Annotation:
The record is a 146-nucleotide sequence from Sporolactobacillus putidus, which matches "FMN riboswitch aptamer (RFN element)" in Rfam.

[Rfam]
RNA sequence: UUUGUCCUUCGGGGUCGGGUGAAAUUCCCAACCGGCGGUGAUGGCUUUAUGCCUUAGCCCGCGACCCGCCUGCCAAUAUUUUGACGGGCGGUGGAUUCAGUGAGAAGCUGAAGCCGACAGUAAAGUCUGGAUGGGAGAAGGAUUGG
Number, nucleotide and partner (000 for none) at each position: 001u000002u000003u000004g143005u142006c141007c140008u139009u138010c137011g000012g000013g000014g000015u000016c000017g029018g028019g027020u000021g000022a000023a000024a000025u000026u000027c019028c018029c017030a000031a126032c125033c116034g115035g062036c061037g060038g059039u000040g000041a000042u000043g000044g000045c000046u000047u000048u000049a000050u000051g000052c000053c000054u000055u000056a000057g114058c113059c038060c037061g036062c035063g000064a000065c000066c091067c090068g089069c088070c087071u000072g000073c000074c000075a000076a000077u000078a000079u000080u000081u000082u000083g000084a000085c000086g000087g070088g069089c068090g067091g066092u000093g000094g000095a000096u112097u111098c110099a109100g108101u000102g000103a000104g000105a000106a000107g000108c100109u099110g098111a097112a096113g058114c057115c034116g033117a000118c129119a128120g127121u000122a000123a000124a000125g032126u031127c120128u119129g118130g000131a000132u000133g000134g000135g000136a000137g010138a009139a008140g007141g006142a005143u004144u000145g000146g000